[Rfam]
RNA sequence: UGGUAGAUGCACCCUGAUUGUUCCCCUGGUUCACCCAGGGGAUUUUUUA
Numbered sequence: 001u002g003g004u005a006g007a008u009g010c011a012c013c014c015u016g017a018u019u020g021u022u023c024c025c026c027u028g029g030u031u032c033a034c035c036c037a038g039g040g041g042a043u044u045u046u047u048u049a
Stems, first nucleotide, its partner, number of pairs: 002013003023041007
Background:
Shown here is a 49-nucleotide RNA sequence from Cyanobacteria bacterium FACHB-502, a member of the family "Nitrogen stress-induced RNA 1".